RNA: mir-9229 microRNA precursor family
Organism: Myotis myotis
RNA sequence: GAGACACCCUUCAGGGGCAAGACUUGCUUCAGUGGGGCUUUGGUGCUCACUGAGUCUGCCCUCUGGUGUGUCCCC
Numbered sequence: 001g002a003g004a005c006a007c008c009c010u011u012c013a014g015g016g017g018c019a020a021g022a023c024u025u026g027c028u029u030c031a032g033u034g035g036g037g038c039u040u041u042g043g044u045g046c047u048c049a050c051u052g053a054g055u056c057u058g059c060c061c062u063c064u065g066g067u068g069u070g071u072c073c074c075c
Stems, first nucleotide, its partner, number of pairs: 001074001003072005009066002014062006021056003029053008037044002